[Rfam]
RNA sequence: CCACGGGCUAACACCCGUGGCUAUGAUAUUACGCCCCGUCGGGGCU
Number, nucleotide and partner (000 for none) at each position: 001c020002c019003a018004c017005g016006g015007g014008c000009u000010a000011a000012c000013a000014c007015c006016c005017g004018u003019g002020g001021c000022u000023a000024u000025g000026a000027u000028a000029u000030u000031a000032c000033g045034c044035c043036c042037c041038g000039u000040c000041g037042g036043g035044g034045c033046u000
RNA: Acido-Lenti-1 RNA
Organism: Cyclobacterium marinum